[Rfam]
RNA sequence: AUUAAUUCUCAGGGCGGGGUGGAAUUCCCCACCGGCGGUGAUUCCCUGUGGGGACAGCCCGCGAGCGCCUGUCAUUAUGGCAGGGUCCAGCUGAUCUGGUGAGAUUCCAGAGCCGACGGUUAGAGUCCGGAAGGAAGAGAUAAGGC
Numbered sequence: 001a002u003u004a005a006u007u008c009u010c011a012g013g014g015c016g017g018g019g020u021g022g023a024a025u026u027c028c029c030c031a032c033c034g035g036c037g038g039u040g041a042u043u044c045c046c047u048g049u050g051g052g053g054a055c056a057g058c059c060c061g062c063g064a065g066c067g068c069c070u071g072u073c074a075u076u077a078u079g080g081c082a083g084g085g086u087c088c089a090g091c092u093g094a095u096c097u098g099g100u101g102a103g104a105u106u107c108c109a110g111a112g113c114c115g116a117c118g119g120u121u122a123g124a125g126u127c128c129g130g131a132a133g134g135a136a137g138a139g140a141u142a143a144g145g146c
Base pairs, nucleotide, nucleotide: 003144007140008139009138010137017029018028019027031126032125033115034114035062036061037060038059057113058112065091066090095111096110097109098108099107117129118128119127
Overview: The family of this 146-nucleotide RNA from Desulfotalea psychrophila is "FMN riboswitch aptamer (RFN element)".